[Rfam]
Rfam assigns this 107-nucleotide sequence from Chlorobaculum tepidum to the family "SAM riboswitch aptamer (S box leader)".
RNA sequence: CUAUCAUCCAGAAAGGCGGAGGGACUGGCCCUGCGAAGCCUUGGCAACCUUCAUUCCACAUGAGCGGUGCCAAAUCCAUCCCGGAGGAAAUCCGGGAAAGAUGAUGU
Dot-bracket structure: .(((((((....(((((...(((..[[[)))......)))))((((.((((((.......)))).))))))...(]]].((((((.....))))))..)))))))).